Annotation: c-di-GMP-I-GGC riboswitch aptamer: an 80-nucleotide sequence from Geotalea uraniireducens.
RNA sequence: CACGAUAAAGCCGAACCCUCCGCAAGAAGGGGGCGGAAAGUCGCGGGUCUUCGCAGUGGAAGACGGCCGGACUGCCGAAG
Numbered sequence: 001c002a003c004g005a006u007a008a009a010g011c012c013g014a015a016c017c018c019u020c021c022g023c024a025a026g027a028a029g030g031g032g033g034c035g036g037a038a039a040g041u042c043g044c045g046g047g048u049c050u051u052c053g054c055a056g057u058g059g060a061a062g063a064c065g066g067c068c069g070g071a072c073u074g075c076c077g078a079a080g
Stems, first nucleotide, its partner, number of pairs: 001080001003077002011036002016031004021026001034066001039073004044069003047064003
Description
A reference for the family is Weinberg et al. (2017), "Bioinformatic analysis of riboswitch structures uncovers variant classes with altered ligand specificity", Proc Natl Acad Sci U S A. The base pairs follow the family's consensus structure, which is taken from published work. The organism belongs to Geotalea uraniireducens, within Bacteria. It scores 68 bits against the family's covariance model.